[Rfam]
Nucleotides: 131
Stems, first nucleotide, its partner, number of pairs: 003055001005053001007051002018042009066125008075116002082109001084107001086105008
Number, partner (000 for none) and nucleotide at each position: 001000a002000a003055a004000u005053c006000a007051g008050g009000u010000c011000g012000c013000a014000a015000u016000u017000a018042u019041a020040g021039u022038g023037c024036u025035u026034c027000a028000u029000u030000u031000u032000c033000u034026g035025g036024g037023g038022c039021a040020c041019u042018g043000c044000c045000a046000u047000u048000a049000u050008c051007c052000c053005g054000c055003u056000g057000a058000a059000a060000g061000a062000a063000u064000a065000c066125c067124c068123g069122u070121g071120u072119u073118a074000a075116u076115c077000a078000u079000u080000u081000u082109u083000g084107a085000u086105u087104u088103u089102g090101c091100c092099u093098u094000u095000a096000g097000g098093a099092g100091g101090g102089u103088g104087a105086a106000u107084u108000a109082a110000u111000g112000a113000c114000a115076g116075a117000a118073u119072g120071a121070c122069a123068u124067g125066g126000a127000c128000a129000g130000u131000u
Source information
Rfam assigns this 131-nucleotide RNA from Propithecus coquereli to the family "Small nucleolar RNA SNORA69". The family has 16 seed sequences and 808 matches in Rfam 15.1. U69 is a member of the H/ACA class of small nucleolar RNAs (snoRNAs) which act as guides in the the modification of uridines to pseudouridines.